[Rfam]
Source information
Shown here is a 110-nucleotide RNA from Aliidiomarina taiwanensis, a member of the family "Ribosomal S15 leader". The literature on the family includes a 1996 paper in Biochimie by Benard et al., "Pseudoknot and translational control in the expression of the S15 ribosomal protein". Rfam describes the family as follows. The E. coli Ribosomal S15 gene 5' UTR can form two alternative structures. One that is a series of three hairpins, The other includes a pseudoknot.
RNA sequence: CGCCCAAGCUGAAUUAGUGAUUGGCUGGGGUUCAUUCAAACUGGAGAAUAAUGAUGUCACUAACCGUUGAACAGAAAGCUCAAAUCGUUAAAGAAUAUGCUCGCGCUGAA
Numbered sequence: 001c002g003c004c005c006a007a008g009c010u011g012a013a014u015u016a017g018u019g020a021u022u023g024g025c026u027g028g029g030g031u032u033c034a035u036u037c038a039a040a041c042u043g044g045a046g047a048a049u050a051a052u053g054a055u056g057u058c059a060c061u062a063a064c065c066g067u068u069g070a071a072c073a074g075a076a077a078g079c080u081c082a083a084a085u086c087g088u089u090a091a092a093g094a095a096u097a098u099g100c101u102c103g104c105g106c107u108g109a110a
Stems, first nucleotide, its partner, number of pairs: 007026006042062003046058001